[Rfam]
RNA sequence: CUGAGUCUGACGCCACUCGGGGCGCCGGAGCCGGGGAACCAACCACAUCUGGGGUGAAUCCCGCACGAGGUGCGACCUCGAAGAUCCUGACCGGAUCGACGAGGGCCGCGAGGAGUGCGGGUAGGGCAAGUCGUGCCCGAAUCCGUCAGCUCACCCGGUAGGCGUACGACACGAAGGGGA
Number, nucleotide and partner (000 for none) at each position: 001c162002u161003g000004a000005g000006u029007c028008u027009g000010a000011c000012g000013c000014c000015a000016c000017u000018c000019g000020g000021g000022g000023c000024g000025c000026c000027g008028g007029a006030g159031c158032c157033g156034g155035g154036g000037a000038a000039c000040c051041a050042a000043c000044c000045a000046c000047a000048u000049c000050u041051g040052g144053g143054g142055u000056g000057a000058a000059u000060c121061c120062c119063g118064c117065a116066c115067g000068a000069g000070g000071u000072g000073c000074g000075a000076c000077c000078u000079c000080g000081a000082a000083g000084a000085u000086c000087c000088u000089g000090a000091c000092c000093g000094g000095a000096u000097c000098g000099a000100c000101g000102a000103g000104g000105g000106c000107c000108g000109c000110g000111a000112g000113g000114a000115g066116u065117g064118c063119g062120g061121g060122u000123a000124g138125g137126g136127c135128a000129a000130g000131u000132c000133g000134u000135g127136c126137c125138c124139g000140a000141a000142u054143c053144c052145g000146u000147c000148a000149g000150c000151u000152c000153a000154c035155c034156c033157g032158g031159u030160a000161g002162g001163c000164g000165u000166a000167c000168g000169a000170c000171a000172c000173g000174a000175a000176g000177g000178g000179g000180a000
RNA: c-di-AMP riboswitch aptamer (ydaO/yuaA leader)
Organism: Nocardioides sp. Root614